[Rfam]
RNA sequence: UUUCCCAUGUUAAACCCUGGUGAACAAGAAAAUUGCGUAAUAAGAAAUUUUGCCUGAUAGCCCAUACACGCAGCAAUGGCAUAAGACGUAAUGUGUAAUCAGGCAUUUAGCGGGCUGCGGGUUGCAGCCUGGACGAAAGACGGGAUUGGUUCACUCAGGUUUACACUGGCGGUACCCUCCUUUUAAAAGCACUGUUUUUCCGGUUGAAAAACAGGCUGCCGAGAAUUUGCGCCCCUGUAGCUGCCGAUACCCGUGAGGGUGACGGCUUUGCGAUGAGACUCGGGGCCAUCGGUCAACCACGUCCAGCGUUACUAUUGCCCGUAGCUUUGUCACUAA
Numbered sequence: 001u002u003u004c005c006c007a008u009g010u011u012a013a014a015c016c017c018u019g020g021u022g023a024a025c026a027a028g029a030a031a032a033u034u035g036c037g038u039a040a041u042a043a044g045a046a047a048u049u050u051u052g053c054c055u056g057a058u059a060g061c062c063c064a065u066a067c068a069c070g071c072a073g074c075a076a077u078g079g080c081a082u083a084a085g086a087c088g089u090a091a092u093g094u095g096u097a098a099u100c101a102g103g104c105a106u107u108u109a110g111c112g113g114g115c116u117g118c119g120g121g122u123u124g125c126a127g128c129c130u131g132g133a134c135g136a137a138a139g140a141c142g143g144g145a146u147u148g149g150u151u152c153a154c155u156c157a158g159g160u161u162u163a164c165a166c167u168g169g170c171g172g173u174a175c176c177c178u179c180c181u182u183u184u185a186a187a188a189g190c191a192c193u194g195u196u197u198u199u200c201c202g203g204u205u206g207a208a209a210a211a212c213a214g215g216c217u218g219c220c221g222a223g224a225a226u227u228u229g230c231g232c233c234c235c236u237g238u239a240g241c242u243g244c245c246g247a248u249a250c251c252c253g254u255g256a257g258g259g260u261g262a263c264g265g266c267u268u269u270g271c272g273a274u275g276a277g278a279c280u281c282g283g284g285g286c287c288a289u290c291g292g293u294c295a296a297c298c299a300c301g302u303c304c305a306g307c308g309u310u311a312c313u314a315u316u317g318c319c320c321g322u323a324g325c326u327u328u329g330u331c332a333c334u335a336a
Base pairs, nucleotide, nucleotide: 003040006037008035017028018027051105052104053103054102055101056100057099061095063093064092068089069088070087073080074079112327113326114325115324116323117322118321119320120319121318122317130305131304132303133302134301135300142181143180144179145178151172152171154169155168188217189216190215192214193213194212195211197209198208199207200206218293219292220291221290222289231286232285233284234283235282245264246263248261249260250259251258252257
RNA: RNase E 5' UTR element
Organism: Erwinia mallotivora